[Rfam]
RNA sequence: AGAGCUCGCAGUGACUGGCGCCGCGACGUGGACCACCACGGGGAAGCUGCGAGAAAUCAAGGGAGGCCGCGCGCCUGGGUCGGAUGG
Numbered sequence: 001a002g003a004g005c006u007c008g009c010a011g012u013g014a015c016u017g018g019c020g021c022c023g024c025g026a027c028g029u030g031g032a033c034c035a036c037c038a039c040g041g042g043g044a045a046g047c048u049g050c051g052a053g054a055a056a057u058c059a060a061g062g063g064a065g066g067c068c069g070c071g072c073g074c075c076u077g078g079g080u081c082g083g084a085u086g087g
Stems, first nucleotide, its partner, number of pairs: 005053008015043002017075005028039004065081004
The record is an 87-nucleotide RNA from Deinococcus proteolyticus, which matches "ZMP/ZTP riboswitch aptamer (pfl RNA motif)" in Rfam. Pairs were carried over by alignment from the consensus structure, which is taken from published work. The match comes from Rfam's covariance-model search (50 bits). Rfam 15.1 lists 3,295 matches to the family in 2,545 species. Rfam links the family to the GO terms one-carbon metabolic process and regulation of purine nucleotide biosynthetic process. Taxonomically the source falls in Deinococcus proteolyticus (Bacteria, Thermotogati, Deinococcota, Deinococcus).